[Rfam]
RNA sequence: UUGUUGAAGUAGAAGCACCCGCUUCUCACCUGAAUGACGCAGAGGCUGUUAACAGGUAACAUAAUCAAAUUUUAAAUUGAUGAUGUUAGUGUGGGUGUAUUUAUAUGCUCACACUUUUUUGUUGGG
Numbered sequence: 001u002u003g004u005u006g007a008a009g010u011a012g013a014a015g016c017a018c019c020c021g022c023u024u025c026u027c028a029c030c031u032g033a034a035u036g037a038c039g040c041a042g043a044g045g046c047u048g049u050u051a052a053c054a055g056g057u058a059a060c061a062u063a064a065u066c067a068a069a070u071u072u073u074a075a076a077u078u079g080a081u082g083a084u085g086u087u088a089g090u091g092u093g094g095g096u097g098u099a100u101u102u103a104u105a106u107g108c109u110c111a112c113a114c115u116u117u118u119u120u121g122u123u124g125g126g
Stems, first nucleotide, its partner, number of pairs: 011026006028057003036050003039046002090113010
RNA: Ribosomal protein L20 leader